[Rfam]
RNA sequence: CCCCCAAGGGGAAGCGAAGACCCUAUAGAGCUUUACUGCAGGCUGUCGCUGAGACGUGGUCGCUGAUGUGCAGGAUAGGUAGGAGGCGUUACACAGGUACCCGCGCUAGCGGGCCACCGAGCCAUCACUGAAAUACUACCCGUCAGUGACUGCGACUCUCACUCCGGGAGGAGGACACCGGUAGCCGGGCAGUUUGACUGGGGCGGUACGCGCUCGAAAAGAUAUCGAGCGCGCCCGAAGAUACCCUCACGCGGGUCGGAAACCCGCAGAAGAGUGCAAGAGCAAAAGGGUGUCUGACAGUGUUCUUCCUAACGAGGAACGCUGACGCGAAAGCGUGGUCUAGCGAACCUACGAGGUUCAUUCAUGGGACCCGUAGAUGACAGAAAAGCUACCUUAGGGAUAACAGAGUCGUCACCGGCAAGAGCACAUAUCGACCCGGUGGCUUGCUACCUCGAUGUCGGUUCCCUCCAUCCUGCCCGUGCAGAAGCGGGCAAGGGUGAGGUUGUUCGCCUAUUAAAGGAGGUCGUGAGCUGGGUUUAGACCGUCGUGAGACAGGUCGGCUGCUAUCUAUUGGGGGUGUGAA
Numbered sequence: 001c002c003c004c005c006a007a008g009g010g011g012a013a014g015c016g017a018a019g020a021c022c023c024u025a026u027a028g029a030g031c032u033u034u035a036c037u038g039c040a041g042g043c044u045g046u047c048g049c050u051g052a053g054a055c056g057u058g059g060u061c062g063c064u065g066a067u068g069u070g071c072a073g074g075a076u077a078g079g080u081a082g083g084a085g086g087c088g089u090u091a092c093a094c095a096g097g098u099a100c101c102c103g104c105g106c107u108a109g110c111g112g113g114c115c116a117c118c119g120a121g122c123c124a125u126c127a128c129u130g131a132a133a134u135a136c137u138a139c140c141c142g143u144c145a146g147u148g149a150c151u152g153c154g155a156c157u158c159u160c161a162c163u164c165c166g167g168g169a170g171g172a173g174g175a176c177a178c179c180g181g182u183a184g185c186c187g188g189g190c191a192g193u194u195u196g197a198c199u200g201g202g203g204c205g206g207u208a209c210g211c212g213c214u215c216g217a218a219a220a221g222a223u224a225u226c227g228a229g230c231g232c233g234c235c236c237g238a239a240g241a242u243a244c245c246c247u248c249a250c251g252c253g254g255g256u257c258g259g260a261a262a263c264c265c266g267c268a269g270a271a272g273a274g275u276g277c278a279a280g281a282g283c284a285a286a287a288g289g290g291u292g293u294c295u296g297a298c299a300g301u302g303u304u305c306u307u308c309c310u311a312a313c314g315a316g317g318a319a320c321g322c323u324g325a326c327g328c329g330a331a332a333g334c335g336u337g338g339u340c341u342a343g344c345g346a347a348c349c350u351a352c353g354a355g356g357u358u359c360a361u362u363c364a365u366g367g368g369a370c371c372c373g374u375a376g377a378u379g380a381c382a383g384a385a386a387a388g389c390u391a392c393c394u395u396a397g398g399g400a401u402a403a404c405a406g407a408g409u410c411g412u413c414a415c416c417g418g419c420a421a422g423a424g425c426a427c428a429u430a431u432c433g434a435c436c437c438g439g440u441g442g443c444u445u446g447c448u449a450c451c452u453c454g455a456u457g458u459c460g461g462u463u464c465c466c467u468c469c470a471u472c473c474u475g476c477c478c479g480u481g482c483a484g485a486a487g488c489g490g491g492c493a494a495g496g497g498u499g500a501g502g503u504u505g506u507u508c509g510c511c512u513a514u515u516a517a518a519g520g521a522g523g524u525c526g527u528g529a530g531c532u533g534g535g536u537u538u539a540g541a542c543c544g545u546c547g548u549g550a551g552a553c554a555g556g557u558c559g560g561c562u563g564c565u566a567u568c569u570a571u572u573g574g575g576g577g578u579g580u581g582a583a
Base pairs, nucleotide, nucleotide: 001577002576003575004574005573006572007571010569011568012567014564015563022398023397024396025395027394028393029390030389031388032387033386035193036192037191038190042185043184044183045182046181047180048179051158052157053156055154056153057152058151059150060149061148062147063146064145065144066143067142068141078140079139080138081137082136085123086122087121100113101112102111103110104109162173163172164171165170196209197207198206199205210232211231212230213229214228215227235338236337241293242292243291244290245289246288247273248272251267252266253265254264255263274283275282298324299323300322301321302320303319304318305317306316326335328333349376350375351374352373353372355371356370357369358368359367407448408447409446411445412442413441414440415439416438417437418436422432423431459534460532461531462530463529464526465523466522467521468520469519472497473496476491477490478489479488480487500512501511502510503509540558541557542556543555544553545552546551
Dot-bracket structure: (((((((..(((.((......((((.(((((((.((((...(((((((..(((.((((((((((((((.........(((((..(((............(((((....))))).......)))............))))))))))))))))))).)))...((((....)))).....)))))))....))))..((((.....))).)((((((...........))))))..((....((((((((..(((((.......)))))....))((......))....))))))....(((((((((.........))))))))).(.(....).).))..........(((((.(((((.......)))))))))).........)))))..))))))........(((.((((((((...((.......))...)))))))..))))..........(((((((((((..((..(((((......)))))....))..((((.....))))......)))))..)..)))).).....(((((((....))).))))....))..))).)))))))......
Shown here is a 583-nucleotide part of an RNA from Salinigranum rubrum, a member of the family "Archaeal large subunit ribosomal RNA". The family's consensus secondary structure is taken from published work.